[Rfam]
Notes: Rfam assigns this 81-nucleotide sequence from Microvirga brassicacearum to the family "chrB-a RNA". The base pairs follow the family's consensus structure, which is taken from published work. The family's RNA type in Rfam is cis-regulatory element.
RNA sequence: UCUAUGGGGUCGCGAUCCCCUCACGAGGCGCCAUGCCAAGAAUCGCGUCCAGCUCUCUUUCAGCGAGGACGCGUCGCUAUG
Numbered sequence: 001u002c003u004a005u006g007g008g009g010u011c012g013c014g015a016u017c018c019c020c021u022c023a024c025g026a027g028g029c030g031c032c033a034u035g036c037c038a039a040g041a042a043u044c045g046c047g048u049c050c051a052g053c054u055c056u057c058u059u060u061c062a063g064c065g066a067g068g069a070c071g072c073g074u075c076g077c078u079a080u081g
Base pairs, nucleotide, nucleotide: 005023006022007021008020009019045072046071047070048069049068050067
The organism belongs to Microvirga, within Bacteria.